[Rfam]
The family of this 88-nucleotide RNA from Vitis vinifera is "mir-156 microRNA precursor family". Rfam 15.1 lists 1,401 matches to the family in 221 species. Rfam links the family to the GO terms miRNA-mediated post-transcriptional gene silencing and RISC complex. For this family Rfam cites "MicroRNAs in plants" (Reinhart et al., Genes Dev, 2002). This family represents the plant microRNA (miRNA) precursor mir-156. The family's consensus secondary structure was predicted with PFOLD.
RNA sequence: GUGACAGAGGAGAGUGAGCACUCAUGGUUCUUUUCUUGCAUGAAGUUUCUAUGCUUGAAGCUCUGUGUGCUUACUCCCUAUCUGUCAC
Numbered sequence: 001g002u003g004a005c006a007g008a009g010g011a012g013a014g015u016g017a018g019c020a021c022u023c024a025u026g027g028u029u030c031u032u033u034u035c036u037u038g039c040a041u042g043a044a045g046u047u048u049c050u051a052u053g054c055u056u057g058a059a060g061c062u063c064u065g066u067g068u069g070c071u072u073a074c075u076c077c078c079u080a081u082c083u084g085u086c087a088c
Base pairs, nucleotide, nucleotide: 001088002087003086004085005084006083007082008081010078012076013075014074015073016072017071018070019069020068021067023065024064